[Rfam]
RNA sequence: UAGUUCCACUAGGGGUGUCAGUUUGUCUGACUGAGAGAGGGAAGCCUCAACUCUUAAAACCUGAUCUAGCUUGUACUAGCGUAGGGAAGUGGUGGCACAUUCUA
Numbered sequence: 001u002a003g004u005u006c007c008a009c010u011a012g013g014g015g016u017g018u019c020a021g022u023u024u025g026u027c028u029g030a031c032u033g034a035g036a037g038a039g040g041g042a043a044g045c046c047u048c049a050a051c052u053c054u055u056a057a058a059a060c061c062u063g064a065u066c067u068a069g070c071u072u073g074u075a076c077u078a079g080c081g082u083a084g085g086g087a088a089g090u091g092g093u094g095g096c097a098c099a100u101u102c103u104a
Stems, first nucleotide, its partner, number of pairs: 006092005011054004017031005038047003060085004066079004
RNA: TPP riboswitch aptamer (THI element)
Organism: Cytobacillus firmus